The family of this 601-nucleotide sequence from Hericium alpestre is "Nuclear RNase P". A search with the family's covariance model found it, with a score of 42 bits. Rfam describes the family as follows. Ribonuclease P (RNase P) is a ubiquitous endoribonuclease, found in archaea, bacteria and eukarya as well as chloroplasts and mitochondria. Taxonomically the source falls in Hericium (Eukaryota, Fungi, Agaricomycotina, Hericiaceae).
[Rfam]
RNA sequence: ACAGCCUGAAAGCCGCGAUGCUCAUUCCACACAGAACGUCGCCCUGCGCACGUUUCUCUUCGUGAGCGGGCUAAGGUCUGAGUAUCUCUCCUCUCAGCUCCAGCCGAGCACCAUCUUCAUGGACUGCGCGACGUACCAGCAAUACCAGGAUCAUGCCAUACCAAUGAGCGGAUAUUAUGGGUCGUCGCCACGGCCCUGCCGAAUGGGCGCAUGCUAUUCUGAUAAAACUCGUCGUAUGGAUUGGGUGCGUAUUGGGAAUCAACGGUCUCUUGAUCUGUGUAAUCGGUCAACUGCCGAGUCUGUCCGUGGCCGCUUGCCUAUCUGCCCUCUCGCUAUGCACUCGCAGUGCAGGGAGAGCCCUCUCCUUCCUGGCCCUCGCAUGGAGUCCCUGCCGCGGUAGGAUUAUGGCUGGGUCACCGGUCAGAUUCUGCCGCAGGCGCGGGAAGAUGUUCGUUGGGCUGGGACGUACGUGAGGCAGCUCUGGGCUUGCAGGCAUGGACGGUCGUACGUGCCCUUCAGUGCACUUCGCGGCGCGCGGGUCUGCCAGCUGUUUGUCAGUUGGUUGGCCCACGUAACUCGAUUCAGACUACUCUCGGGCUGU
Numbered sequence: 001a002c003a004g005c006c007u008g009a010a011a012g013c014c015g016c017g018a019u020g021c022u023c024a025u026u027c028c029a030c031a032c033a034g035a036a037c038g039u040c041g042c043c044c045u046g047c048g049c050a051c052g053u054u055u056c057u058c059u060u061c062g063u064g065a066g067c068g069g070g071c072u073a074a075g076g077u078c079u080g081a082g083u084a085u086c087u088c089u090c091c092u093c094u095c096a097g098c099u100c101c102a103g104c105c106g107a108g109c110a111c112c113a114u115c116u117u118c119a120u121g122g123a124c125u126g127c128g129c130g131a132c133g134u135a136c137c138a139g140c141a142a143u144a145c146c147a148g149g150a151u152c153a154u155g156c157c158a159u160a161c162c163a164a165u166g167a168g169c170g171g172a173u174a175u176u177a178u179g180g181g182u183c184g185u186c187g188c189c190a191c192g193g194c195c196c197u198g199c200c201g202a203a204u205g206g207g208c209g210c211a212u213g214c215u216a217u218u219c220u221g222a223u224a225a226a227a228c229u230c231g232u233c234g235u236a237u238g239g240a241u242u243g244g245g246u247g248c249g250u251a252u253u254g255g256g257a258a259u260c261a262a263c264g265g266u267c268u269c270u271u272g273a274u275c276u277g278u279g280u281a282a283u284c285g286g287u288c289a290a291c292u293g294c295c296g297a298g299u300c301u302g303u304c305c306g307u308g309g310c311c312g313c314u315u316g317c318c319u320a321u322c323u324g325c326c327c328u329c330u331c332g333c334u335a336u337g338c339a340c341u342c343g344c345a346g347u348g349c350a351g352g353g354a355g356a357g358c359c360c361u362c363u364c365c366u367u368c369c370u371g372g373c374c375c376u377c378g379c380a381u382g383g384a385g386u387c388c389c390u391g392c393c394g395c396g397g398u399a400g401g402a403u404u405a406u407g408g409c410u411g412g413g414u415c416a417c418c419g420g421u422c423a424g425a426u427u428c429u430g431c432c433g434c435a436g437g438c439g440c441g442g443g444a445a446g447a448u449g450u451u452c453g454u455u456g457g458g459c460u461g462g463g464a465c466g467u468a469c470g471u472g473a474g475g476c477a478g479c480u481c482u483g484g485g486c487u488u489g490c491a492g493g494c495a496u497g498g499a500c501g502g503u504c505g506u507a508c509g510u511g512c513c514c515u516u517c518a519g520u521g522c523a524c525u526u527c528g529c530g531g532c533g534c535g536c537g538g539g540u541c542u543g544c545c546a547g548c549u550g551u552u553u554g555u556c557a558g559u560u561g562g563u564u565g566g567c568c569c570a571c572g573u574a575a576c577u578c579g580a581u582u583c584a585g586a587c588u589a590c591u592c593u594c595g596g597g598c599u600g601u
Stems, first nucleotide, its partner, number of pairs: 001601004007595003012532007020067005034055006078585005086245003097109004111126001114123003128235006146221006533573003537569005